Annotation
Shown here is a 99-nucleotide RNA from Lacticaseibacillus saniviri, a member of the family "TPP riboswitch aptamer (THI element)". It scores 56 bits against the family's covariance model.
RNA sequence: CGAAAACAUCAGGGGAGCUUAACGGCUGAGAGGAAGGCAACUUCGACCCUUAGAACCUGUCCGGAUAAUACUGGCGUAGGAAGUUAGCGGCACAAGUGG
Numbered sequence: 001c002g003a004a005a006a007c008a009u010c011a012g013g014g015g016a017g018c019u020u021a022a023c024g025g026c027u028g029a030g031a032g033g034a035a036g037g038c039a040a041c042u043u044c045g046a047c048c049c050u051u052a053g054a055a056c057c058u059g060u061c062c063g064g065a066u067a068a069u070a071c072u073g074g075c076g077u078a079g080g081a082a083g084u085u086a087g088c089g090g091c092a093c094a095a096g097u098g099g
Stems, first nucleotide, its partner, number of pairs: 008085001010083001011050004017026003033044004056080004061074004
Dot-bracket structure: .......(.(((((..(((....)))......((((....))))..)))).....((((.((((......))))..))))..).)..............